[Rfam]
The family of this 76-nucleotide RNA from Pseudobutyrivibrio ruminis is "c-di-GMP-I riboswitch aptamer". Gene Ontology term of the family: cyclic-di-GMP binding. The source organism's lineage runs through Bacteria, Clostridia, Lachnospirales, Lachnospiraceae and Pseudobutyrivibrio.
RNA sequence: ACUUUAUAUGGGCAAAACAAGCGAAAGCUUGCGACGCAAAACUAUAGGGACUUUAAAAUGUCAGCCAGUUGCAACU
Numbered sequence: 001a002c003u004u005u006a007u008a009u010g011g012g013c014a015a016a017a018c019a020a021g022c023g024a025a026a027g028c029u030u031g032c033g034a035c036g037c038a039a040a041a042c043u044a045u046a047g048g049g050a051c052u053u054u055a056a057a058a059u060g061u062c063a064g065c066c067a068g069u070u071g072c073a074a075c076u
Stems, first nucleotide, its partner, number of pairs: 012037002018031005040070004047066002049062003